[Rfam]
RNA: Group II catalytic intron D1-D4-1
Nucleotides: 085
Base pairs, nucleotide, nucleotide: 001023004021005020006019007018008017009016010015037044038043046085047084048083055078056077057076058075059074060073061072062071
Number, partner (000 for none) and nucleotide at each position: 001023a002000a003000c004021c005020c006019a007018u008017g009016c010015a011000g012000u013000g014000a015010u016009g017008u018007a019006u020005g021004g022000c023001u024000g025000a026000a027000c028000c029000u030000u031000g032000a033000g034000a035000a036000g037044u038043c039000a040000g041000c042000a043038g044037a045000g046085g047084u048083c049000a050000u051000a052000g053000u054000a055078c056077u057076u058075a059074u060073c061072u062071a063000g064000a065000c066000a067000u068000g069000a070000a071062u072061a073060g074059a075058u076057a077056a078055g079000g080000a081000a082000g083048g084047a085046c